[Rfam]
RNA: rpsB sRNA
RNA sequence: CACACGCGAACUUUCGCGUCAGACGGAUUGAAAGCCCCGUCCGGCGCUCCGGUGGAUCGCUCUCUAACCCUCAGGGUCGGUGAAGCGUUCUUGCUCUGGGUUCGCGGAGGAUUAACCGGAAAAGGAAGAGACAU
Numbered sequence: 001c002a003c004a005c006g007c008g009a010a011c012u013u014u015c016g017c018g019u020c021a022g023a024c025g026g027a028u029u030g031a032a033a034g035c036c037c038c039g040u041c042c043g044g045c046g047c048u049c050c051g052g053u054g055g056a057u058c059g060c061u062c063u064c065u066a067a068c069c070c071u072c073a074g075g076g077u078c079g080g081u082g083a084a085g086c087g088u089u090c091u092u093g094c095u096c097u098g099g100g101u102u103c104g105c106g107g108a109g110g111a112u113u114a115a116c117c118g119g120a121a122a123a124g125g126a127a128g129a130g131a132c133a134u
Stems, first nucleotide, its partner, number of pairs: 001109001003107001005106007016047002024039003054094001